Small nucleolar RNA SNORA30/SNORA37 family: a 127-nucleotide RNA sequence from Oryctolagus cuniculus. It scores 99 bits against the family's covariance model. The members of this family belong to the H/ACA class of snoRNAs that guide the sites of modification of uridines to pseudouridines. This family includes human ACA30 (SNORA30), ACA37 (SNORA37) and the mouse homolog MBI-26. Both ACA37 and ACA30 are predicted to guide the pseudouridylation of residue U4643 of 28S rRNA. On this family, see Huttenhofer et al., EMBO J 2001: "RNomics: an experimental approach that identifies 201 candidates for novel, small, non-messenger RNAs in mouse". Rfam classes the family as an H/ACA-box small nucleolar RNA.
[Rfam]
RNA sequence: CCAGCACUUUCACAGUUCCUCCCUAGGAAGUGGGGCCAGGAUUUCGUAGCUGGUGCUGGAAGAAAACCCUUAAUUGCAUCUUUGCCCUGGAAUUUACCAGUGGCAGGUGACACUCAAGGGAACAGCA
Number, nucleotide and partner (000 for none) at each position: 001c000002c000003a057004g056005c055006a054007c053008u052009u000010u000011c000012a000013c000014a044015g043016u000017u041018c040019c039020u038021c035022c034023c033024u032025a000026g000027g000028a000029a000030g000031u000032g024033g023034g022035g021036c000037c000038a020039g019040g018041a017042u000043u015044u014045c000046g000047u000048a000049g000050c000051u000052g008053g007054u006055g005056c004057u003058g000059g000060a000061a000062g000063a000064a000065a000066a000067c000068c120069c119070u117071u116072a000073a114074u000075u112076g111077c000078a000079u109080c000081u000082u106083u105084g104085c103086c102087c100088u099089g098090g097091a000092a000093u000094u000095u000096a000097c090098c089099a088100g087101u000102g086103g085104c084105a083106g082107g000108u000109g079110a000111c076112a075113c000114u073115c000116a071117a070118g000119g069120g068121a000122a000123c000124a000125g000126c000127a000